The family of this 80-nucleotide RNA sequence is "RAGATH-28 RNA". The family's consensus secondary structure is taken from published work. It is annotated as a small RNA.
[Rfam]
RNA sequence: ACAGAGUUGAUGCGUCCCCUGUGGAUUGCCCGGCGGGCAUAGCAGCGAAAAUCCGGGCUGAAAAGGCCGGAUGGCGAAGC
Numbered sequence: 001a002c003a004g005a006g007u008u009g010a011u012g013c014g015u016c017c018c019c020u021g022u023g024g025a026u027u028g029c030c031c032g033g034c035g036g037g038c039a040u041a042g043c044a045g046c047g048a049a050a051a052u053c054c055g056g057g058c059u060g061a062a063a064a065g066g067c068c069g070g071a072u073g074g075c076g077a078a079g080c
Base pairs, nucleotide, nucleotide: 001022002021003020004019006017053070054069055068056067058065059064
Dot-bracket structure: ((((.(..........).))))..............................((((.((....)).))))..........